[Rfam]
A member of the RNA family "Streptomyces sRNA 4677", 257 nucleotides long. The match comes from Rfam's covariance-model search (212 bits). Rfam 15.1 lists 563 matches to the family in 285 species. On this family, see Hindra et al., PLoS One 2014: "Complex intra-operonic dynamics mediated by a small RNA in Streptomyces coelicolor". Located in the intergenic region between anti-sigma factor SCO4677 gene and a putative regulatory protein gene SCO4676. scr4677 expression requires the SCO4677 activity and scr4677 sRNA itself seem to affect the levels of the SCO4676-associated transcripts. Pairs were carried over by alignment from the consensus structure. It is annotated as a small RNA.
RNA sequence: UGCUCCGGUACCGUGCGCGGUCUUUCCCAAGAAACAUCAGGGUGAAAGAACCCUCACCAAGCCCCACCCCUCCCGCCCACGGCACACCAUCACCCGCGCGGGUGAAGAUGCCCAACUCGACUGGAUUCGGGAGCCAUUGCCUGCCUUACGCUCAGCGCGGCACCACACACCACACAACCGCAGACAUGCGACGGCCCCCGCCGGGACGGCAAUCCCAGUGCGAGGGCCUGACCACCGAGGAAGACAAGGACUUCCCG
Numbered sequence: 001u002g003c004u005c006c007g008g009u010a011c012c013g014u015g016c017g018c019g020g021u022c023u024u025u026c027c028c029a030a031g032a033a034a035c036a037u038c039a040g041g042g043u044g045a046a047a048g049a050a051c052c053c054u055c056a057c058c059a060a061g062c063c064c065c066a067c068c069c070c071u072c073c074c075g076c077c078c079a080c081g082g083c084a085c086a087c088c089a090u091c092a093c094c095c096g097c098g099c100g101g102g103u104g105a106a107g108a109u110g111c112c113c114a115a116c117u118c119g120a121c122u123g124g125a126u127u128c129g130g131g132a133g134c135c136a137u138u139g140c141c142u143g144c145c146u147u148a149c150g151c152u153c154a155g156c157g158c159g160g161c162a163c164c165a166c167a168c169a170c171c172a173c174a175c176a177a178c179c180g181c182a183g184a185c186a187u188g189c190g191a192c193g194g195c196c197c198c199c200g201c202c203g204g205g206a207c208g209g210c211a212a213u214c215c216c217a218g219u220g221c222g223a224g225g226g227c228c229u230g231a232c233c234a235c236c237g238a239g240g241a242a243g244a245c246a247a248g249g250a251c252u253u254c255c256c257g
Stems, first nucleotide, its partner, number of pairs: 007236003017076003090105006121155004193228005199222003203216004239255005